[Rfam]
RNA sequence: GCUGCAAGUUCGAGGACACAGCAGAAGUACUCACGGUGCAGCCCUGUCAGAUUCCAACGAAUCUGCAAAUUCUGCU
Numbered sequence: 001g002c003u004g005c006a007a008g009u010u011c012g013a014g015g016a017c018a019c020a021g022c023a024g025a026a027g028u029a030c031u032c033a034c035g036g037u038g039c040a041g042c043c044c045u046g047u048c049a050g051a052u053u054c055c056a057a058c059g060a061a062u063c064u065g066c067a068a069a070u071u072c073u074g075c076u
Stems, first nucleotide, its partner, number of pairs: 012044001014043002020076007027039003048065007

Record summary:
Shown here is a 76-nucleotide RNA from Crocodylus porosus, a member of the family "Mammalian CPEB3 ribozyme". The source organism's lineage runs through Eukaryota, Deuterostomia, Craniata, Amniota and Crocodylus. The base pairs follow the family's consensus structure, which is taken from published work. From the family's description: The mammalian CPEB3 ribozyme is a self cleaving RNA located in the second intron of the CPEB3 gene which belongs to a family of genes regulating messenger RNA polyadenylation.